[Rfam]
Annotation: This 133-nucleotide sequence from Caldibacillus debilis belongs to the Rfam family "c-di-AMP riboswitch aptamer (ydaO/yuaA leader)". A search with the family's covariance model found it, with a score of 95 bits. Lineage of the source: Bacteria > Bacillati > Bacillota > Bacillaceae > Caldibacillus debilis.
RNA sequence: CACCUGCAAGCGCUGAAUUCCGUAAGGAAGCGGGGGACCCGCCGUUCUUGGGGUGAACCUCAUGGGCCUUGAGGGGGGAGACUCUUUCUUCCUAACCCGUCAGCUAACUCCGCAAGCGUGAAAGAGGGGUGGU
Numbered sequence: 001c002a003c004c005u006g007c008a009a010g011c012g013c014u015g016a017a018u019u020c021c022g023u024a025a026g027g028a029a030g031c032g033g034g035g036g037a038c039c040c041g042c043c044g045u046u047c048u049u050g051g052g053g054u055g056a057a058c059c060u061c062a063u064g065g066g067c068c069u070u071g072a073g074g075g076g077g078g079a080g081a082c083u084c085u086u087u088c089u090u091c092c093u094a095a096c097c098c099g100u101c102a103g104c105u106a107a108c109u110c111c112g113c114a115a116g117c118g119u120g121a122a123a124g125a126g127g128g129g130u131g132g133u
Stems, first nucleotide, its partner, number of pairs: 011118004018029003030113006040050002051098003059073004076092004
Dot-bracket structure: ..........((((...(((......)))((((((....((.......))(((.....((((.......))))..((((.........))))...))).........)))))).))))...............